This 77-nucleotide RNA from Sphingomonas sp. Leaf231 belongs to the Rfam family "chrB-a RNA". The family's consensus secondary structure is taken from published work. Rfam 15.1 lists 347 matches to the family in 339 species. A search with the family's covariance model found it, with a score of 79 bits. The family's RNA type in Rfam is cis-regulatory element.
RNA sequence: UGGAUGGGGAAUGCGAUCUCCCCACGAGGCGCCAGCCGAAGAAUCGCGUCCAGCCCAAGUGACAAGGACGCGCCAUG
Numbered sequence: 001u002g003g004a005u006g007g008g009g010a011a012u013g014c015g016a017u018c019u020c021c022c023c024a025c026g027a028g029g030c031g032c033c034a035g036c037c038g039a040a041g042a043a044u045c046g047c048g049u050c051c052a053g054c055c056c057a058a059g060u061g062a063c064a065a066g067g068a069c070g071c072g073c074c075a076u077g
Stems, first nucleotide, its partner, number of pairs: 005024006046071006